[Rfam]
RNA: BsrC
RNA sequence: UGUACCUAAACGACCUAAGCCCUGCCUUCUCUUAAGUCCUUGCAGCUCCGAAGCUGCUCCAGUGUGAAUAAGUCUAGUCAACACUAG
Dot-bracket structure: ...................................(..((.((((((....))))))...))..)......................